Shown here is an 86-nucleotide RNA from Asaccharospora irregularis, a member of the family "skipping-rope RNA". A search with the family's covariance model found it, with a score of 69 bits. Rfam classes the family as a small RNA.
RNA sequence: UGGAUUUGAGGUUGGAAAUGGCACCCAACGCGCUACCCAUGUGGAUAGUAACCAGAGAUACAGGAUACGCCGCCCUGUCAAUUCUA
Dot-bracket structure: ((((.(((..(((((...[[[[..))))).(((((..........)))).....)....(((((....]]]].)))))))).))))
Numbered sequence: 001u002g003g004a005u006u007u008g009a010g011g012u013u014g015g016a017a018a019u020g021g022c023a024c025c026c027a028a029c030g031c032g033c034u035a036c037c038c039a040u041g042u043g044g045a046u047a048g049u050a051a052c053c054a055g056a057g058a059u060a061c062a063g064g065a066u067a068c069g070c071c072g073c074c075c076u077g078u079c080a081a082u083u084c085u086a
Stems, first nucleotide, its partner, number of pairs: 001086004006081003011029005019072004031055001032049004060078005